[Rfam]
RNA sequence: UCCGGUCCUCGGUAGUGGCCCCCGGAGCCUGGCUCCGUGGGCCUCGAUCGAAGACCGCC
Numbered sequence: 001u002c003c004g005g006u007c008c009u010c011g012g013u014a015g016u017g018g019c020c021c022c023c024g025g026a027g028c029c030u031g032g033c034u035c036c037g038u039g040g041g042c043c044u045c046g047a048u049c050g051a052a053g054a055c056c057g058c059c
Base pairs, nucleotide, nucleotide: 003057004056005055006054007053009051010050011049012048013047017043018042019041020040021039023037024036025035026034027033028032
RNA: Actino-pnp RNA